[Rfam]
RNA sequence: UGCAGCUGUGUCCAAUUCGGUGCCCGCCCGCCCCGUGGCCGGCGCUGGCCAAGAGGCUGCCACAGAAACACAGUGACCCAUGGGCCCUGGUGCCCUCUGCUGGGCCUCAGGGAUAAAUUUGGUCACGGACACCU
Number, nucleotide and partner (000 for none) at each position: 001u000002g060003c059004a058005g057006c000007u000008g000009u000010g000011u000012c000013c000014a000015a000016u000017u000018c047019g046020g045021u044022g043023c042024c041025c000026g039027c038028c037029c000030g000031c000032c000033c000034c000035g000036u000037g028038g027039c026040c000041g024042g023043c022044g021045c020046u019047g018048g000049c000050c000051a000052a000053g000054a000055g000056g000057c005058u004059g003060c002061c000062a000063c000064a000065g000066a000067a000068a000069c000070a000071c000072a000073g126074u125075g124076a123077c122078c121079c000080a000081u000082g000083g000084g000085c112086c111087c110088u109089g108090g000091u000092g000093c000094c000095c000096u000097c000098u000099g000100c000101u000102g000103g000104g000105c000106c000107u000108c089109a088110g087111g086112g085113a000114u000115a000116a000117a000118u000119u000120u000121g078122g077123u076124c075125a074126c073127g000128g000129a000130c000131a000132c000133c000134u000
Background: Small nucleolar RNA SNORA5: a 134-nucleotide RNA sequence from Enhydra lutris. It is annotated as an H/ACA-box small nucleolar RNA. Clan: SNORA5 clan. Rfam describes the family as follows. ACA5 is a member of the H/ACA class of snoRNA that guide the sites of modification of uridines to pseudouridines. Rfam 15.1 lists 2,226 matches to the family in 629 species. The organism belongs to Enhydra lutris, within Eukaryota. A search with the family's covariance model found it, with a score of 114 bits. Gene Ontology terms of the family: nucleolus and RNA processing.